c-di-GMP-I riboswitch aptamer: an 89-nucleotide RNA from Pelotomaculum propionicicum. The family has 155 seed sequences and 5,092 matches in Rfam 15.1. A search with the family's covariance model found it, with a score of 72 bits. Lineage of the source: Bacteria > Bacillota > Clostridia > Desulfotomaculaceae > Pelotomaculum.
RNA sequence: UUCUAUAAAGGGUAAACCACCUCGAAAGAGUGGGACACAAAGCCGUGAAUCUAAAGCAGAUCGGCUGCUAUGAUUGUCAGGUUGCGGAA
Numbered sequence: 001u002u003c004u005a006u007a008a009a010g011g012g013u014a015a016a017c018c019a020c021c022u023c024g025a026a027a028g029a030g031u032g033g034g035a036c037a038c039a040a041a042g043c044c045g046u047g048a049a050u051c052u053a054a055a056g057c058a059g060a061u062c063g064g065c066u067g068c069u070a071u072g073a074u075u076g077u078c079a080g081g082u083u084g085c086g087g088a089a
Stems, first nucleotide, its partner, number of pairs: 012038002017033004022029002041083004046079003049074003056068004